[Rfam]
RNA sequence: UGGAGAAGGGGAGCACGUGCACAAAACUUACUAGCAUUAGCUUUUUGCACGUGCCCUGCUUCUCCAAC
Numbered sequence: 001u002g003g004a005g006a007a008g009g010g011g012a013g014c015a016c017g018u019g020c021a022c023a024a025a026a027c028u029u030a031c032u033a034g035c036a037u038u039a040g041c042u043u044u045u046u047g048c049a050c051g052u053g054c055c056c057u058g059c060u061u062c063u064c065c066a067a068c
Base pairs, nucleotide, nucleotide: 001066002065003064004063005062006061007060008059010057011056013054014053015052016051017050018049019048020047021046023044024043029034